[Rfam]
RNA: MIR398 microRNA precursor family
RNA sequence: GAAAAUCCUACAGGGGCGACCUGAGAACACAUGAAACAAUCACUUGUUAUUAAGCAUGUCAUGUGUUCUCAAGUCACACCUAUUGGAUCUCU
Numbered sequence: 001g002a003a004a005a006u007c008c009u010a011c012a013g014g015g016g017c018g019a020c021c022u023g024a025g026a027a028c029a030c031a032u033g034a035a036a037c038a039a040u041c042a043c044u045u046g047u048u049a050u051u052a053a054g055c056a057u058g059u060c061a062u063g064u065g066u067u068c069u070c071a072a073g074u075c076a077c078a079c080c081u082a083u084u085g086g087a088u089c090u091c092u
Stems, first nucleotide, its partner, number of pairs: 007086002012081003016077001018075002023070010
Dot-bracket structure: ......((...(((.(.((...((((((((((............................))))))))))...)).).)))...))......